[Rfam]
The family of this 160-nucleotide RNA from Lentibacillus halodurans is "Group II catalytic intron D1-D4-3".
RNA sequence: GGUUGUGGUAGCCGUUAGCUGAAGGAAGACGGAAGCAAAUUUCCGACCUGAGGAACACGGAUCUUAUAUAAGGAUGUCAUUCUUGAAUGAGGUUGCAUAUCAAGCCGAACGACCAAAAGGAAAGGGCAAUAGGCGGGUACAUGGAAAGGAAGCUUGUGCA
Numbered sequence: 001g002g003u004u005g006u007g008g009u010a011g012c013c014g015u016u017a018g019c020u021g022a023a024g025g026a027a028g029a030c031g032g033a034a035g036c037a038a039a040u041u042u043c044c045g046a047c048c049u050g051a052g053g054a055a056c057a058c059g060g061a062u063c064u065u066a067u068a069u070a071a072g073g074a075u076g077u078c079a080u081u082c083u084u085g086a087a088u089g090a091g092g093u094u095g096c097a098u099a100u101c102a103a104g105c106c107g108a109a110c111g112a113c114c115a116a117a118a119g120g121a122a123a124g125g126g127c128a129a130u131a132g133g134c135g136g137g138u139a140c141a142u143g144g145a146a147a148g149g150a151a152g153c154u155u156g157u158g159c160a
Stems, first nucleotide, its partner, number of pairs: 001016003005012002030158002035153002040147006046138005062133003067128001077125001080122005085110001091106004
The base pairs follow the family's consensus structure.